[Rfam]
RNA sequence: UUAGCUCUCUUUGCCUAUUGGCUUAGAUCAAGUGUAGUAUCUGUUCUUUUCAGUUUAAUCUCUGAAAGUUUCCUCUUGGAAACACUUUGAUUAUUCUCAUUUUUGGAAUCAGCAACUUGGCCUCUGUGCUUGCGCACGCCUCGUUGCACUGUGUCAUCGGGCUUACACUACCCCCGAUCGACGCGAAUUCUU
Dot-bracket structure: .......(((..(((....)))..)))....................((((((........))))))((((((....))))))............................(((((..(.....((((....))))...)..)))))..((((((((((((...........)))))).)))))).......
Numbered sequence: 001u002u003a004g005c006u007c008u009c010u011u012u013g014c015c016u017a018u019u020g021g022c023u024u025a026g027a028u029c030a031a032g033u034g035u036a037g038u039a040u041c042u043g044u045u046c047u048u049u050u051c052a053g054u055u056u057a058a059u060c061u062c063u064g065a066a067a068g069u070u071u072c073c074u075c076u077u078g079g080a081a082a083c084a085c086u087u088u089g090a091u092u093a094u095u096c097u098c099a100u101u102u103u104u105g106g107a108a109u110c111a112g113c114a115a116c117u118u119g120g121c122c123u124c125u126g127u128g129c130u131u132g133c134g135c136a137c138g139c140c141u142c143g144u145u146g147c148a149c150u151g152u153g154u155c156a157u158c159g160g161g162c163u164u165a166c167a168c169u170a171c172c173c174c175c176g177a178u179c180g181a182c183g184c185g186a187a188u189u190c191u192u
Stems, first nucleotide, its partner, number of pairs: 008027003013022003048067006068083006112147005119140001125136004150185006156178006

This 192-nucleotide RNA from Penicillium antarcticum belongs to the Rfam family "U2 spliceosomal RNA". Its family is annotated with pre-mRNA branch point binding, mRNA branch site recognition and U2 snRNP in the Gene Ontology. The organism belongs to Penicillium, within Eukaryota. About the family: U2 is a small nuclear RNA (snRNA) component of the spliceosome (involved in pre-mRNA splicing). Complementary binding between U2 snRNA (in an area lying towards the 5' end but 3' to hairpin I) and the branchpoint sequence (BPS) of the intron results the bulging out of an unpaired adenosine, on the BPS, which initiates a nucleophilic attack at the intronic 5' splice site, thus starting the first of two transesterification reactions that mediate splicing. The base pairs follow the family's consensus structure, which is taken from published work. On this family, see Zwieb, Nucleic Acids Res 1997: "The uRNA database".